Shown here is a 67-nucleotide sequence from Psychromonas sp. psych-6C06, a member of the family "Fluoride riboswitch aptamer (crcB RNA motif)". The family's consensus secondary structure is taken from published work. For this family Rfam cites "Widespread genetic switches and toxicity resistance proteins for fluoride" (Baker et al., Science, 2012).
RNA sequence: UGUAUUCACGGUGAUGGGGUUCCACCGAUUUAACCGCCAAUCUACGGCUGAUGACUCCUACAGAAUU
Number, nucleotide and partner (000 for none) at each position: 001u000002g000003u000004a000005u000006u000007c000008a000009c000010g026011g025012u024013g023014a000015u000016g058017g057018g056019g055020u054021u053022c000023c013024a012025c011026c010027g000028a000029u000030u000031u000032a000033a000034c000035c000036g048037c047038c046039a000040a000041u000042c000043u000044a000045c000046g038047g037048c036049u000050g000051a000052u000053g021054a020055c019056u018057c017058c016059u000060a000061c000062a000063g000064a000065a000066u000067u000